A member of the RNA family "Flavo-1 RNA" from Winogradskyella arenosi, 78 nucleotides long. NCBI's taxonomy places the organism under Bacteria, Bacteroidota, Flavobacteriia, Flavobacteriales, Winogradskyella.
RNA sequence: GUGAAGACGCGUUAAGGAUUGCAACGGCAUCCUUUUUUCUUUUUCUGAAAAAAGAUAUAGUGGAAAGCCUGACCUACU
Numbered sequence: 001g002u003g004a005a006g007a008c009g010c011g012u013u014a015a016g017g018a019u020u021g022c023a024a025c026g027g028c029a030u031c032c033u034u035u036u037u038u039c040u041u042u043u044u045c046u047g048a049a050a051a052a053a054g055a056u057a058u059a060g061u062g063g064a065a066a067g068c069c070u071g072a073c074c075u076a077c078u
Base pairs, nucleotide, nucleotide: 015070016069017068019066020065024061025060029056030055031054035051036050037049038048039047
The family's RNA type in Rfam is small RNA.